[Rfam]
Source information: Shown here is a 126-nucleotide RNA sequence from Caenorhabditis japonica, a member of the family "Caenorhabditis snoRNA ceN110". For this family Rfam cites "Systematic identification of non-coding RNA 2,2,7-trimethylguanosine cap structures in Caenorhabditis elegans" (Jia et al., BMC Mol Biol, 2007). It scores 98 bits against the family's covariance model. Lineage of the source: Eukaryota > Nematoda > Rhabditomorpha > Rhabditoidea > Caenorhabditis. Pairs were carried over by alignment from the consensus structure, which was predicted with RNAalifold.
RNA sequence: ACGCAGAUGUCCAUUACGCAAUAGGCGCCUGCCUUUUGACGUUUAGUUUAGUCUGCAAAAUAAAAUUCACAUCUCGAAGACAGGCAUAUGGCAUUUAGUAUUCCUGUUCAAGAUUGUUAUACAAUU
Numbered sequence: 001a002c003g004c005a006g007a008u009g010u011c012c013a014u015u016a017c018g019c020a021a022u023a024g025g026c027g028c029c030u031g032c033c034u035u036u037u038g039a040c041g042u043u044u045a046g047u048u049u050a051g052u053c054u055g056c057a058a059a060a061u062a063a064a065a066u067u068c069a070c071a072u073c074u075c076g077a078a079g080a081c082a083g084g085c086a087u088a089u090g091g092c093a094u095u096u097a098g099u100a101u102u103c104c105u106g107u108u109c110a111a112g113a114u115u116g117u118u119a120u121a122c123a124a125u126u
Stems, first nucleotide, its partner, number of pairs: 003056006016042003019038003023035001067119001071114004076109002080107005086101002